RNA sequence: UCGCGGCCCGCCUCUGGUUCGCUUGGUGCAGGUCGGGAAACGCCAUUGAUCGAUCGGCUGUCUCAGCUUAAUUCGCUCGUGCGUGUCCCGCUUUGCACCAACUGAAUCGGAGACGGCAACGCGC
Numbered sequence: 001u002c003g004c005g006g007c008c009c010g011c012c013u014c015u016g017g018u019u020c021g022c023u024u025g026g027u028g029c030a031g032g033u034c035g036g037g038a039a040a041c042g043c044c045a046u047u048g049a050u051c052g053a054u055c056g057g058c059u060g061u062c063u064c065a066g067c068u069u070a071a072u073u074c075g076c077u078c079g080u081g082c083g084u085g086u087c088c089c090g091c092u093u094u095g096c097a098c099c100a101a102c103u104g105a106a107u108c109g110g111a112g113a114c115g116g117c118a119a120c121g122c123g124c
Stems, first nucleotide, its partner, number of pairs: 013111002017107004023101010034090005040084004
This 124-nucleotide sequence from Leersia perrieri belongs to the Rfam family "MIR168 microRNA precursor family". A reference for the family is Reinhart et al. (2002), "MicroRNAs in plants", Genes Dev.